Rfam assigns this 73-nucleotide sequence from Papaver nudicaule to the family "tRNA". Transfer RNA (tRNA) molecules are approximately 80 nucleotides in length. The source organism's lineage runs through Eukaryota, Embryophyta, Tracheophyta, Ranunculales and Papaver. Its family is annotated with triplet codon-amino acid adaptor activity in the Gene Ontology. It is annotated as a transfer RNA.

RNA sequence: GUUGUCUUAGCUCAAAUGGAAGAGUACAUGGUUUUCAACCAUGCAGGUAUGGGUUCGACUCCCACAGAUGGCA
Numbered sequence: 001g002u003u004g005u006c007u008u009a010g011c012u013c014a015a016a017u018g019g020a021a022g023a024g025u026a027c028a029u030g031g032u033u034u035u036c037a038a039c040c041a042u043g044c045a046g047g048u049a050u051g052g053g054u055u056c057g058a059c060u061c062c063c064a065c066a067g068a069u070g071g072c073a
Stems, first nucleotide, its partner, number of pairs: 001072007010025004027043005050064004